[Rfam]
RNA: mir-283 microRNA precursor family
RNA sequence: CAGUCCGGUGGCGUAGUCAAAUAUCAGCUGGUAAUUCUGGGAUUGUAAAAACUAGCCCAGGAUUCUUGCUGGUAUCCGGCUACGAACUGGU
Numbered sequence: 001c002a003g004u005c006c007g008g009u010g011g012c013g014u015a016g017u018c019a020a021a022u023a024u025c026a027g028c029u030g031g032u033a034a035u036u037c038u039g040g041g042a043u044u045g046u047a048a049a050a051a052c053u054a055g056c057c058c059a060g061g062a063u064u065c066u067u068g069c070u071g072g073u074a075u076c077c078g079g080c081u082a083c084g085a086a087c088u089g090g091u
Stems, first nucleotide, its partner, number of pairs: 013083006021075008030066002034063008